[Rfam]
Nucleotides: 136
Stems, first nucleotide, its partner, number of pairs: 003063001006060002019047005025040004081122006095113001097111001
Number, partner (000 for none) and nucleotide at each position: 001000a002000c003063c004000c005000u006060c007059c008000a009000g010000u011000u012000c013000c014000u015000u016000u017000a018000c019047c020046c021045a022044u023043c024000a025040g026039a027038u028037c029000u030000g031000a032000u033000c034000c035000c036000u037028g038027g039026u040025c041000u042000u043023g044022g045021u046020g047019g048000u049000u050000g051000g052000u053000u054000g055000g056000a057000a058000a059007g060006g061000c062000a063003g064000a065000a066000a067000a068000g069000g070000a071000a072000u073000g074000c075000u076000g077000a078000a079000u080000c081122u082121g083120g084119u085118c086117u087000c088000a089000c090000a091000g092000c093000c094000u095113u096000a097111u098000a099000g100000u101000c102000u103000g104000a105000u106000a107000u108000a109000u110000a111097g112000c113095a114000u115000g116000u117086g118085g119084g120083c121082u122081a123000a124000u125000u126000u127000u128000u129000a130000a131000a132000c133000a134000a135000g136000a